[Rfam]
RNA sequence: GUGCAAAUGAUGGAAAAAAAGUCACUAUUGGUGAGGGAAAAAAAUGACAUGAACAAAGGAACCACUGAUGCAC
Numbered sequence: 001g002u003g004c005a006a007a008u009g010a011u012g013g014a015a016a017a018a019a020a021g022u023c024a025c026u027a028u029u030g031g032u033g034a035g036g037g038a039a040a041a042a043a044a045u046g047a048c049a050u051g052a053a054c055a056a057a058g059g060a061a062c063c064a065c066u067g068a069u070g071c072a073c
Base pairs, nucleotide, nucleotide: 001073002072003071004070005069
Rfam assigns this 73-nucleotide RNA sequence from Odocoileus virginianus to the family "Small nucleolar RNA SNORD42". The organism belongs to Odocoileus virginianus, within Eukaryota. snoRNA U42 is found in intron 3 of the ribosomal protein L23a (RPL23a) gene in humans and is also present in mice. It scores 68 bits against the family's covariance model. The literature on the family includes a 2002 paper in Mol Cell Biol by Galardi et al., "Purified box C/D snoRNPs are able to reproduce site-specific 2'-O-methylation of target RNA in vitro".